A member of the RNA family "MIR5565 microRNA precursor family" from Sorghum bicolor, 109 nucleotides long. NCBI's taxonomy places the organism under Eukaryota, Tracheophyta, Mesangiospermae, Poales, Sorghum. Gene Ontology terms of the family: miRNA-mediated post-transcriptional gene silencing and RISC complex.
[Rfam]
RNA sequence: AUAGUCGGAUUCGCAUCAAUCCACAUGUAUUGGGGUGGGUUGGAGUGAAACUUGAACUAAAUUCCACCCUAAUCUACUCCAAUACAUGUGGAUUUAGGUGAAUCCGACA
Numbered sequence: 001a002u003a004g005u006c007g008g009a010u011u012c013g014c015a016u017c018a019a020u021c022c023a024c025a026u027g028u029a030u031u032g033g034g035g036u037g038g039g040u041u042g043g044a045g046u047g048a049a050a051c052u053u054g055a056a057c058u059a060a061a062u063u064c065c066a067c068c069c070u071a072a073u074c075u076a077c078u079c080c081a082a083u084a085c086a087u088g089u090g091g092a093u094u095u096a097g098g099u100g101a102a103u104c105c106g107a108c109a
Base pairs, nucleotide, nucleotide: 004108005107006106007105008104009103010102011101012100013099014098016096018094019093020092021091022090023089024088025087026086027085028084029083030082031081032080035077036076037075038074039073040072041071042070043069045067046066047065